[Rfam]
RNA sequence: GGCAGCCUGUGUGCAUGGUGACAGUCCAUGUUAAGUGUUGCUGUUUGCCUGUGUCCUGCAGUCUGACAGCAGUGCUCACACAAUGCCUGCAGCCACAGAGAAACUGGAGGUCAUAGUACUGGUCUAGCGACGUCUCCAAGACAACGCCACCACUGGCCAGCCUCCAUACUCUCCCACAUGG
Numbered sequence: 001g002g003c004a005g006c007c008u009g010u011g012u013g014c015a016u017g018g019u020g021a022c023a024g025u026c027c028a029u030g031u032u033a034a035g036u037g038u039u040g041c042u043g044u045u046u047g048c049c050u051g052u053g054u055c056c057u058g059c060a061g062u063c064u065g066a067c068a069g070c071a072g073u074g075c076u077c078a079c080a081c082a083a084u085g086c087c088u089g090c091a092g093c094c095a096c097a098g099a100g101a102a103a104c105u106g107g108a109g110g111u112c113a114u115a116g117u118a119c120u121g122g123u124c125u126a127g128c129g130a131c132g133u134c135u136c137c138a139a140g141a142c143a144a145c146g147c148c149a150c151c152a153c154u155g156g157c158c159a160g161c162c163u164c165c166a167u168a169c170u171c172u173c174c175c176a177c178a179u180g181g
Stems, first nucleotide, its partner, number of pairs: 013090003029082003035076001036074006043067003047063001050060003106174005119160006126154002129151001132142003